Rfam assigns this 253-nucleotide RNA from Trifolium subterraneum to the family "MIR2655 microRNA precursor family". Taxonomically the source falls in Trifolium (Eukaryota, Magnoliopsida, Hologalegina, Trifolieae). It scores 129 bits against the family's covariance model. The family has 25 seed sequences and 892 matches in Rfam 15.1. Gene Ontology terms of the family: RISC complex and miRNA-mediated post-transcriptional gene silencing. The base pairs follow the family's consensus structure, which was predicted with RNAalifold.
[Rfam]
RNA sequence: CCCUUAUCUUUUAAAAGUUUCAUGUUAGUCCUUUAUCUUUUCUGCAGGUUUCAAGUUGGUCCCUUCCGUCAAAUUUUUGCACUAUUACCGUUAAAUUUGGACACGUGACAAACUAAUUUGGACACGUGGCACACUUAGACAGAUGACACGUGUCCAAAUUUAAUGGUAAUAGUGAAAAAUUUGACAGGAGGGACCAACUUGAAACCUGUAGAAAAGAUAAGGGACCAACAUGAAACUUUUAAAAGAUAAAGGA
Dot-bracket structure: .(.(((((..............(((..((.(((((((((((((.(((..............................................................................................................................................................))).))))))))))))).))..)))..............))))).)..